[Rfam]
RNA: Nuclear RNase P
RNA sequence: GGCGGAAGGAAGCUCAUCAGGGAGGCCACGAGCUGAGUGCCUUGUGUCACUCUACCCCAUGUCGCCUGCGAAGGUCUGAGACUAGAGCCAAAAGUGGCCCUAACAGGGUCCUCCCUGAGUUUCAAGGAGGUGAGUUUUCAGAGAAUGUGGCUCUUCGCUCAGGAGGGCAGACUGGGGAGGAGACGCAGUGGACCCCGCCUCGGGGAUGGGCCUGGCAGAUGCCUCCUUAGCCCAAGCUUGGAACAGACUCACCCAGCCAGGGACGUGAGUUCAAUGACUGCGGUGAGGUACCCUGCCCGGGGGCCUCAUAACCCAAUUCAGACUACUCUCCCCUAUC
Numbered sequence: 001g002g003c004g005g006a007a008g009g010a011a012g013c014u015c016a017u018c019a020g021g022g023a024g025g026c027c028a029c030g031a032g033c034u035g036a037g038u039g040c041c042u043u044g045u046g047u048c049a050c051u052c053u054a055c056c057c058c059a060u061g062u063c064g065c066c067u068g069c070g071a072a073g074g075u076c077u078g079a080g081a082c083u084a085g086a087g088c089c090a091a092a093a094g095u096g097g098c099c100c101u102a103a104c105a106g107g108g109u110c111c112u113c114c115c116u117g118a119g120u121u122u123c124a125a126g127g128a129g130g131u132g133a134g135u136u137u138u139c140a141g142a143g144a145a146u147g148u149g150g151c152u153c154u155u156c157g158c159u160c161a162g163g164a165g166g167g168c169a170g171a172c173u174g175g176g177g178a179g180g181a182g183a184c185g186c187a188g189u190g191g192a193c194c195c196c197g198c199c200u201c202g203g204g205g206a207u208g209g210g211c212c213u214g215g216c217a218g219a220u221g222c223c224u225c226c227u228u229a230g231c232c233c234a235a236g237c238u239u240g241g242a243a244c245a246g247a248c249u250c251a252c253c254c255a256g257c258c259a260g261g262g263a264c265g266u267g268a269g270u271u272c273a274a275u276g277a278c279u280g281c282g283g284u285g286a287g288g289u290a291c292c293c294u295g296c297c298c299g300g301g302g303g304c305c306u307c308a309u310a311a312c313c314c315a316a317u318u319c320a321g322a323c324u325a326c327u328c329u330c331c332c333c334u335a336u337c
Stems, first nucleotide, its partner, number of pairs: 001337002004334001008331003013282001015280002021069001023067003035052005040046001076321005087257002096110005111129004116124001130252007150237003283309007